[Rfam]
RNA sequence: AUCAUGAUACUCCCGCAUAGUCGAGGUUUGGUCCCAGAGUGCGGCCCGUCCGCUGGGGGGGAGGUGGAAUUCCUGUGA
Numbered sequence: 001a002u003c004a005u006g007a008u009a010c011u012c013c014c015g016c017a018u019a020g021u022c023g024a025g026g027u028u029u030g031g032u033c034c035c036a037g038a039g040u041g042c043g044g045c046c047c048g049u050c051c052g053c054u055g056g057g058g059g060g061g062a063g064g065u066g067g068a069a070u071u072c073c074u075g076u077g078a
Stems, first nucleotide, its partner, number of pairs: 012075001013044006045061003049057003062074003

Shown here is a 78-nucleotide sequence from Pelotomaculum isophthalicicum, a member of the family "pemK RNA". It scores 50 bits against the family's covariance model.